[Rfam]
RNA sequence: UCGUCCGGUACGCCUAAUCCCGAGUGCCUCACUCGGGAACCGGGGACCCAACGUACCUGGGGUGAACGCGCGUGAGCGCGAGGGCCUGCCUCCUGCCCGAACCCGUCAGCUAACCCGGUCGGCAGAUGGAGAGGAGUG
Numbered sequence: 001u002c003g004u005c006c007g008g009u010a011c012g013c014c015u016a017a018u019c020c021c022g023a024g025u026g027c028c029u030c031a032c033u034c035g036g037g038a039a040c041c042g043g044g045g046a047c048c049c050a051a052c053g054u055a056c057c058u059g060g061g062g063u064g065a066a067c068g069c070g071c072g073u074g075a076g077c078g079c080g081a082g083g084g085c086c087u088g089c090c091u092c093c094u095g096c097c098c099g100a101a102c103c104c105g106u107c108a109g110c111u112a113a114c115c116c117g118g119u120c121g122g123c124a125g126a127u128g129g130a131g132a133g134g135a136g137u138g
Stems, first nucleotide, its partner, number of pairs: 012123003018038009039119006049059002060104003068079004082098004